[Rfam]
RNA: mir-221 microRNA precursor family
Organism: Salmo salar
RNA sequence: UGCUCAGUAGUCAGUGUAGAUCCUGUGGGGCAGUCAGCAGCUACAUCUGGCUACUGGGUC
Numbered sequence: 001u002g003c004u005c006a007g008u009a010g011u012c013a014g015u016g017u018a019g020a021u022c023c024u025g026u027g028g029g030g031c032a033g034u035c036a037g038c039a040g041c042u043a044c045a046u047c048u049g050g051c052u053a054c055u056g057g058g059u060c
Base pairs, nucleotide, nucleotide: 004057005056006055007054008053009052011050012049013048014046015045016044017043018042019041023040024039025038026037